[Rfam]
RNA: U4 spliceosomal RNA
Organism: Brassica rapa
RNA sequence: AUCUUUGCGCUUGGGGCAAUGACGCAGCUAAUGAGGUACUAACCGAGGCGCGUCUAUUGCUGGUUGAAAACUAUUUCCAAACCCCCUCCUGGGCCUAAGCUUGUCUUGGGCCUUCGAGAAUUUCUGGAAGGGCUCCCUCCGGGGUAAAGCU
Number, nucleotide and partner (000 for none) at each position: 001a000002u000003c000004u000005u000006u000007g000008c000009g000010c000011u000012u000013g000014g000015g000016g000017c000018a000019a000020u000021g054022a053023c052024g051025c050026a000027g049028c048029u047030a000031a000032u000033g000034a000035g044036g043037u042038a000039c000040u000041a000042a037043c036044c035045g000046a000047g029048g028049c027050g025051c024052g023053u022054c021055u000056a000057u000058u000059g000060c000061u000062g000063g000064u000065u000066g000067a000068a000069a000070a000071c000072u000073a000074u000075u000076u000077c000078c000079a000080a000081a000082c000083c000084c000085c000086c118087u117088c116089c000090u000091g113092g112093g111094c110095c109096u108097a107098a106099g105100c000101u000102u000103g000104u000105c099106u098107u097108g096109g095110g094111c093112c092113u091114u000115c000116g088117a087118g086119a000120a000121u000122u000123u000124c000125u000126g000127g000128a000129a000130g000131g151132g150133c149134u148135c000136c000137c000138u000139c000140c000141g000142g000143g000144g000145u000146a000147a000148a134149g133150c132151u131